The family of this 175-nucleotide RNA from Polaromonas sp. Pch-P is "Manganese Mn2+ riboswitch aptamer (yybP-ykoY)".
It scores 90 bits against the family's covariance model.
The source organism's lineage runs through Bacteria, Pseudomonadati, Pseudomonadota, Betaproteobacteria and Polaromonas.
RNA sequence: CAGGCUGUCAUUGGGGAGUAGCCAGCCUUUCAAUCCUGAAAGGGGCUUGCGUCAACAGACUUGUUCCAACGGAACAUGGCGCAAGCGGUCUUCGGAUCACGCGAGACCUUUGACUGCACAGCCUCCGUUUUUGGCCGGGGAUGCCGUGCAGUCAUGGGUUUUCGGCCGGAGUCUU
Numbered sequence: 001c002a003g004g005c006u007g008u009c010a011u012u013g014g015g016g017a018g019u020a021g022c023c024a025g026c027c028u029u030u031c032a033a034u035c036c037u038g039a040a041a042g043g044g045g046c047u048u049g050c051g052u053c054a055a056c057a058g059a060c061u062u063g064u065u066c067c068a069a070c071g072g073a074a075c076a077u078g079g080c081g082c083a084a085g086c087g088g089u090c091u092u093c094g095g096a097u098c099a100c101g102c103g104a105g106a107c108c109u110u111u112g113a114c115u116g117c118a119c120a121g122c123c124u125c126c127g128u129u130u131u132u133g134g135c136c137g138g139g140g141a142u143g144c145c146g147u148g149c150a151g152u153c154a155u156g157g158g159u160u161u162u163c164g165g166c167c168g169g170a171g172u173c174u175u
Stems, first nucleotide, its partner, number of pairs: 026043003045086010062076005087174002090171006